[Rfam]
RNA sequence: CGGGAGUGAUGAGGUUCCACUUCACUGGUCCGUGUUUCUGAAACACAUGAUUGUGUGGAAGUUCUGACUUG
Numbered sequence: 001c002g003g004g005a006g007u008g009a010u011g012a013g014g015u016u017c018c019a020c021u022u023c024a025c026u027g028g029u030c031c032g033u034g035u036u037u038c039u040g041a042a043a044c045a046c047a048u049g050a051u052u053g054u055g056u057g058g059a060a061g062u063u064c065u066g067a068c069u070u071g
Base pairs, nucleotide, nucleotide: 001071002070003069004068
Notes:
Small nucleolar RNA SNORD18: a 71-nucleotide sequence from Notiomystis cincta. A search with the family's covariance model found it, with a score of 69 bits. Clan: SNORD18 clan. The family's consensus secondary structure was predicted with PFOLD.